[Rfam]
RNA sequence: CACCUUGCGCCGGGAGGGACCGGGCCCUAUAUGUUUCCCUGCCUGGGGCGCAAGCCCUGGCUAUGGCGAUAAACGUUGUGUGGAAUAAGUGUUGCGGACCCGGGGGCAGUGCCCGGCGUCUCCACCAAAUUCUCCGCAAUCCCUUCGGGGAGCGUGGAGCAUGGGGACGAAACAGGCUCGACGCGCACGGUAAAGACGCAGCUUUUGCCCGGCAUUGUACCACCGUCAUCGGGCUAAAUCACAAGUGCCAACGAUAACUCGCAGGUGCUCGCUGUCGCUGCAUAAGCGAUAAGCGCGGUUCGGGAGGGCACCGGGCAACAGAAGCCCUCCCACU
Numbered sequence: 001c002a003c004c005u006u007g008c009g010c011c012g013g014g015a016g017g018g019a020c021c022g023g024g025c026c027c028u029a030u031a032u033g034u035u036u037c038c039c040u041g042c043c044u045g046g047g048g049c050g051c052a053a054g055c056c057c058u059g060g061c062u063a064u065g066g067c068g069a070u071a072a073a074c075g076u077u078g079u080g081u082g083g084a085a086u087a088a089g090u091g092u093u094g095c096g097g098a099c100c101c102g103g104g105g106g107c108a109g110u111g112c113c114c115g116g117c118g119u120c121u122c123c124a125c126c127a128a129a130u131u132c133u134c135c136g137c138a139a140u141c142c143c144u145u146c147g148g149g150g151a152g153c154g155u156g157g158a159g160c161a162u163g164g165g166g167a168c169g170a171a172a173c174a175g176g177c178u179c180g181a182c183g184c185g186c187a188c189g190g191u192a193a194a195g196a197c198g199c200a201g202c203u204u205u206u207g208c209c210c211g212g213c214a215u216u217g218u219a220c221c222a223c224c225g226u227c228a229u230c231g232g233g234c235u236a237a238a239u240c241a242c243a244a245g246u247g248c249c250a251a252c253g254a255u256a257a258c259u260c261g262c263a264g265g266u267g268c269u270c271g272c273u274g275u276c277g278c279u280g281c282a283u284a285a286g287c288g289a290u291a292a293g294c295g296c297g298g299u300u301c302g303g304g305a306g307g308g309c310a311c312c313g314g315g316c317a318a319c320a321g322a323a324g325c326c327c328u329c330c331c332a333c334u
Stems, first nucleotide, its partner, number of pairs: 041061003045057003065209005075202007090187003094184003100116005117169007210225003215236001217234001220232002296313004303330006
RNA: Alphaproteobacteria transfer-messenger RNA
Organism: Tanticharoenia sakaeratensis